[Rfam]
Shown here is a 358-nucleotide RNA from Prevotella sp. CAG:279, a member of the family "Bacterial RNase P class A". Its family is annotated with dimeric ribonuclease P complex, ribonuclease P activity and tRNA processing in the Gene Ontology. A search with the family's covariance model found it, with a score of 258 bits. From the family's description: Ribonuclease P (RNase P) is a ubiquitous endoribonuclease, found in archaea, bacteria and eukarya as well as chloroplasts and mitochondria. It is annotated as a ribozyme.
RNA sequence: ACAGUACGGUGUCCUGUCGCUUGCCGCCUCUUUUGGCGGUAAGAGGAAAGUCCGGGCAACAUAGAGUGCCAUAUUUCCUAACGGGAAGCUGUCGGCGACGGCAGAGCAGUGUGACAGAAAACAACCGCCACGCAAGUGGUAAGGGUGAAAAGGCGGGGUAAGAGCCCACCGGGCGCGAUGGCGACAUUGCGCGCCGCACAUCUUAUGGGUUGCAAGGUCAAGUAUACCGGCAUUUAAGGGCUACUCGUCCAUUGCCGGGGGGUAGGCUGCUGGAGCCACGUGGCGACGCGUGGCGUAGAUAAAUGACAGGACGCGGCUAAGGCUGCGACAUAACCCGGCUUAUAGCCGUACUGUUUUU
Dot-bracket structure: ((((((((((((((((((.(((((((((......)))))))))....[[[.[[[[[((((...[[[[.((((((((((.....)))))(.((((....)))).)((..(((((...........(((((((....)))))..)).......((.(((.......))).)).(((((((((....)))))))).)..))))))))))))))))...((((.......(((((......((((.]]]]))))...)))))......))))......((((((((....))))))))..........)))))))......................]]]]]]]].).))))))))))....